[Rfam]
RNA: Small nucleolar RNA SNORA44
Organism: Leptonychotes weddellii
RNA sequence: CAGCAUGUUUCCCAGGGCCAUGGCCCAUCGUGGCCAUGGCCCAUCGUGGCCAUGGCCCAUUGUGGCCAUGGGCUCUCCAACCACAUGCAGGAGCAGCCUGGAGAGACUUUGACAGCACAAGUCAGCCUAUACCCUCAACUGCCACUCACCUUGCCUAGAACA
Numbered sequence: 001c002a003g004c005a006u007g008u009u010u011c012c013c014a015g016g017g018c019c020a021u022g023g024c025c026c027a028u029c030g031u032g033g034c035c036a037u038g039g040c041c042c043a044u045c046g047u048g049g050c051c052a053u054g055g056c057c058c059a060u061u062g063u064g065g066c067c068a069u070g071g072g073c074u075c076u077c078c079a080a081c082c083a084c085a086u087g088c089a090g091g092a093g094c095a096g097c098c099u100g101g102a103g104a105g106a107c108u109u110u111g112a113c114a115g116c117a118c119a120a121g122u123c124a125g126c127c128u129a130u131a132c133c134c135u136c137a138a139c140u141g142c143c144a145c146u147c148a149c150c151u152u153g154c155c156u157a158g159a160a161c162a
Stems, first nucleotide, its partner, number of pairs: 011071002016067007100155002103152003115142002119135001121133001